RNA sequence: ACAGGGUCAGCUGAAAACCUGCAAAAGAGUAAGCA
Numbered sequence: 001a002c003a004g005g006g007u008c009a010g011c012u013g014a015a016a017a018c019c020u021g022c023a024a025a026a027g028a029g030u031a032a033g034c035a
Base pairs, nucleotide, nucleotide: 002021003020004019005018010034011033012032